[Rfam]
RNA sequence: AAGCAUGUGAAGAGUUACUCGGAUUCCCCUUCAAGUCAUUCUGGAUGAUGCAGGUUCAAGUUUCUGAUGCU
Numbered sequence: 001a002a003g004c005a006u007g008u009g010a011a012g013a014g015u016u017a018c019u020c021g022g023a024u025u026c027c028c029c030u031u032c033a034a035g036u037c038a039u040u041c042u043g044g045a046u047g048a049u050g051c052a053g054g055u056u057c058a059a060g061u062u063u064c065u066g067a068u069g070c071u
Stems, first nucleotide, its partner, number of pairs: 002071004
This 71-nucleotide RNA from Tetracentron sinense belongs to the Rfam family "Small nucleolar RNA snoR60". The organism belongs to Tetracentron, within Eukaryota. On this family, see Barneche et al., J Biol Chem 2000: "Fibrillarin genes encode both a conserved nucleolar protein and a novel small nucleolar RNA involved in ribosomal RNA methylation in Arabidopsis thaliana". Rfam classes the family as a C/D-box small nucleolar RNA. The family is grouped with related families in Rfam's "SNORD101 clan". Pairs were carried over by alignment from the consensus structure, which was predicted with PFOLD. The family has 10 seed sequences and 1,133 matches in Rfam 15.1.